[Rfam]
RNA sequence: AAAAAGGGCUCCUGACAUGAGUGGCACAUGGAGGACAGCUUGGUUGCUCUUCGUGUGGAAUUGACAUCAAGAGAUUUCAGAAGCAUAAUUUUUUGGUACUUGGGCAGCUAGUGAUCAUUGGUCCUGGUGCCCCG
Numbered sequence: 001a002a003a004a005a006g007g008g009c010u011c012c013u014g015a016c017a018u019g020a021g022u023g024g025c026a027c028a029u030g031g032a033g034g035a036c037a038g039c040u041u042g043g044u045u046g047c048u049c050u051u052c053g054u055g056u057g058g059a060a061u062u063g064a065c066a067u068c069a070a071g072a073g074a075u076u077u078c079a080g081a082a083g084c085a086u087a088a089u090u091u092u093u094u095g096g097u098a099c100u101u102g103g104g105c106a107g108c109u110a111g112u113g114a115u116c117a118u119u120g121g122u123c124c125u126g127g128u129g130c131c132c133c134g
Stems, first nucleotide, its partner, number of pairs: 008084003012080001013026002016023002027055008036046003056079007102132004107128005113123004
RNA: U11 spliceosomal RNA
Organism: Rousettus aegyptiacus